[Rfam]
RNA: Small nucleolar RNA snoR77
RNA sequence: AGGCAACCUCCUUGCGGUGACGAUGGCAAUUGGAGGUGUUAACCUGCUCGGAAAUUAAGUAAUGCUUUUGCUCUUCAGACUUGCUGAGGUUAUAUCCCCGUUGAAGCUGGUCUAGUAAGCCUAAGCACAUU
Numbered sequence: 001a002g003g004c005a006a007c008c009u010c011c012u013u014g015c016g017g018u019g020a021c022g023a024u025g026g027c028a029a030u031u032g033g034a035g036g037u038g039u040u041a042a043c044c045u046g047c048u049c050g051g052a053a054a055u056u057a058a059g060u061a062a063u064g065c066u067u068u069u070g071c072u073c074u075u076c077a078g079a080c081u082u083g084c085u086g087a088g089g090u091u092a093u094a095u096c097c098c099c100g101u102u103g104a105a106g107c108u109g110g111u112c113u114a115g116u117a118a119g120c121c122u123a124a125g126c127a128c129a130u131u
Stems, first nucleotide, its partner, number of pairs: 002040004007036002009033002012029004017024001065125003070120003077113005083107003088099002